Rfam assigns this 66-nucleotide RNA from Pararobbsia silviterrae to the family "Betaproteobacteria toxic small RNA". The match comes from Rfam's covariance-model search (54 bits). Rfam's curators write: Overexpression in amino aid rich medium attenuates growth, suggesting role in repressing amino acid intake and metabolism.

[Rfam]
RNA sequence: UGUCUCCUCCAUGUCCUCCGAUAUGGAUUUAGCCCGGCGUAGCCCAUCUACACCGGGCUAUUUUUU
Numbered sequence: 001u002g003u004c005u006c007c008u009c010c011a012u013g014u015c016c017u018c019c020g021a022u023a024u025g026g027a028u029u030u031a032g033c034c035c036g037g038c039g040u041a042g043c044c045c046a047u048c049u050a051c052a053c054c055g056g057g058c059u060a061u062u063u064u065u066u
Stems, first nucleotide, its partner, number of pairs: 008027007031059007